[Rfam]
RNA sequence: GUAGUCGGAUUCAUAUCAAUCCACAUGUAUUGGAGUGAAUUGGAGUAGAACUUGAACUAAAUUACACCCUAAUCCACCUCGACACAUGUGGAUUGAGAUGAAUCCAAUG
Numbered sequence: 001g002u003a004g005u006c007g008g009a010u011u012c013a014u015a016u017c018a019a020u021c022c023a024c025a026u027g028u029a030u031u032g033g034a035g036u037g038a039a040u041u042g043g044a045g046u047a048g049a050a051c052u053u054g055a056a057c058u059a060a061a062u063u064a065c066a067c068c069c070u071a072a073u074c075c076a077c078c079u080c081g082a083c084a085c086a087u088g089u090g091g092a093u094u095g096a097g098a099u100g101a102a103u104c105c106a107a108u109g
Stems, first nucleotide, its partner, number of pairs: 004108002007105008016096013030082003035077003039073005045067002
MIR5565 microRNA precursor family: a 109-nucleotide RNA sequence from Miscanthus lutarioriparius. Gene Ontology terms of the family: miRNA-mediated post-transcriptional gene silencing and RISC complex. Lineage of the source: Eukaryota > Streptophyta > Euphyllophyta > commelinids > Miscanthus. The family's consensus secondary structure was predicted with RNAalifold.